MIR8024 microRNA precursor family: an 86-nucleotide sequence from Solanum commersonii. The family has 2 seed sequences and 661 matches in Rfam 15.1. Gene Ontology terms of the family: miRNA-mediated post-transcriptional gene silencing and RISC complex. Pairs were carried over by alignment from the consensus structure, which was predicted with RNAalifold.
RNA sequence: UUGGAAUAUUUAACGACUUCAACUUGCAAACUUGAUAAAUUUGAAGGUUUGAACUUUCAUACUUGAAGGAUUUGAAGACUUCAACU
Number, nucleotide and partner (000 for none) at each position: 001u084002u083003g082004g081005a080006a000007u000008a000009u076010u075011u074012a073013a072014c000015g000016a000017c068018u067019u066020c065021a064022a000023c000024u000025u059026g058027c000028a056029a000030a000031c000032u053033u052034g000035a050036u000037a048038a000039a000040u000041u000042u000043g000044a000045a000046g000047g000048u037049u000050u035051g000052a033053a032054c000055u000056u028057u000058c026059a025060u000061a000062c000063u000064u021065g020066a019067a018068g017069g000070a000071u000072u013073u012074g011075a010076a009077g000078a000079c000080u005081u004082c003083a002084a001085c000086u000